[Rfam]
Overview
A member of the RNA family "Small nucleolar RNA SNORD83" from Clupea harengus, 78 nucleotides long. Rfam classes the family as a C/D-box small nucleolar RNA. It scores 64 bits against the family's covariance model.

RNA sequence: GCCACAUGAUGAUCCUUUAGAAUACAAUAGCACUCUGUGCAAAGAUGACCAACUAUCUAUCACCCUUGACUGAUGGCA
Numbered sequence: 001g002c003c004a005c006a007u008g009a010u011g012a013u014c015c016u017u018u019a020g021a022a023u024a025c026a027a028u029a030g031c032a033c034u035c036u037g038u039g040c041a042a043a044g045a046u047g048a049c050c051a052a053c054u055a056u057c058u059a060u061c062a063c064c065c066u067u068g069a070c071u072g073a074u075g076g077c078a
Base pairs, nucleotide, nucleotide: 001077002076003075004074030040031039032038033037

NCBI's taxonomy places the organism under Eukaryota, Opisthokonta, Bilateria, Actinopteri, Clupea. Gene Ontology terms of the family: RNA processing and nucleolus.